A member of the RNA family "Bacterial small subunit ribosomal RNA" from Chitinophaga solisilvae, 578 nucleotides of a longer RNA. The family has 99 seed sequences and 42,628 matches in Rfam 15.1. Its Rfam clan is "SSU clan".

[Rfam]
RNA sequence: UGACGGGGGUCCGCACAAGCGGUGGAGCAUGUGGUUUAAUUCGAUGAUACGCGAGGAACCUUACCUGGGCUAGAAUGCAGUCUGACUGUGGGUGAAAGCUCAUUUUGUAGCAAUACACAGAUUGUAAGGUGCUGCAUGGCUGUCGUCAGCUCGUGCCGUGAGGUGUUGGGUUAAGUCCCGCAACGAGCGCAACCCCUAUCACUAGUUGCCAGCACUUCGGGUGGGAACUCUAGUGAAACUGCCGUCGUAAGACGCGAGGAAGGAGGGGAUGAUGUCAAGUCAUCAUGGCCUUUAUGCCCAGGGCUACACACGUGCUACAAUGGUAGAGACAAAGGGCUGCUACCUGGUAACAGGCUGCUAAUCUCAAAAACUCUAUCUCAGUUCGGAUUGAGGUCUGCAACUCGACCUCAUGAAGCUGGAAUCGCUAGUAAUCGUAUAUCAGCAAUGAUACGGUGAAUACGUUCCCGGACCUUGUACACACCGCCCGUCAAGCCAUGAAAGCCGGGGGGACCUGAAGUCGGCAACCGCAAGGAACCGCCUAGGGUAAAAUCGGUAAUUGGGGCUAAGUCGUAACAAGG
Dot-bracket structure: (((((.(((((((.((..((((((.((((((((((....((((........))))........(((((((.....(((.(((((...((((((....))))))..((((....))))))))).))).((.((((..((((((.((...(((((((((....)))..((((......))))..)))))).....((((.(((((((...((..(((.....)))))....)))))))..((.(((((....)))).).)).....))))....)).).)))...))))))))....)))))))...)).)))))))).)...(((((((.....(((..((...(((....)))...))....))).....)))))))......(....(((((((........)))))))....).....))))).....(((((((..........)))))))......))...)))))))))).))..(.(..((...((((.(((..(((((....(((....(.(((...((....))..))).)...)))....)))))..))).))))....))...)..).